[Rfam]
RNA sequence: UUCUUAUCAAGAGCGGUGGAGGGACUGGCCCUAUGAAACCCGGCAACAGCUAGUUAAUUCUAGUAAUGUGCUAAAUCCAGCAGGUGUUCCCUGGGAGAUAAGAU
Numbered sequence: 001u002u003c004u005u006a007u008c009a010a011g012a013g014c015g016g017u018g019g020a021g022g023g024a025c026u027g028g029c030c031c032u033a034u035g036a037a038a039c040c041c042g043g044c045a046a047c048a049g050c051u052a053g054u055u056a057a058u059u060c061u062a063g064u065a066a067u068g069u070g071c072u073a074a075a076u077c078c079a080g081c082a083g084g085u086g087u088u089c090c091c092u093g094g095g096a097g098a099u100a101a102g103a104u
Stems, first nucleotide, its partner, number of pairs: 002103007013041001015040003021031003025080004042072004047068002049064004076096001081093004